[Rfam]
RNA sequence: AAGUUAUAAAUGCCGAAUCUCAAUUAUGAGUACGGAGGAAUUACAAAUGGGGUGAAUCUCCUCACUUAUUUCAGGGGGAGUAGGGUACCUUUAACCCAAACCCGUCAACUAACUUCGGAGGCUGAUUAAAGGAGGAAAA
Numbered sequence: 001a002a003g004u005u006a007u008a009a010a011u012g013c014c015g016a017a018u019c020u021c022a023a024u025u026a027u028g029a030g031u032a033c034g035g036a037g038g039a040a041u042u043a044c045a046a047a048u049g050g051g052g053u054g055a056a057u058c059u060c061c062u063c064a065c066u067u068a069u070u071u072c073a074g075g076g077g078g079a080g081u082a083g084g085g086u087a088c089c090u091u092u093a094a095c096c097c098a099a100a101c102c103c104g105u106c107a108a109c110u111a112a113c114u115u116c117g118g119a120g121g122c123u124g125a126u127u128a129a130a131g132g133a134g135g136a137a138a139a
Stems, first nucleotide, its partner, number of pairs: 012122003019030002033117005042049002050103003058080006083097004
Dot-bracket structure: ...........(((....((........))..(((((....((....))(((.....((((((...........))))))..((((.......))))...))).........)))))..))).................
The record is a 139-nucleotide RNA from Clostridium sp. JN-9, which matches "c-di-AMP riboswitch aptamer (ydaO/yuaA leader)" in Rfam. It scores 89 bits against the family's covariance model.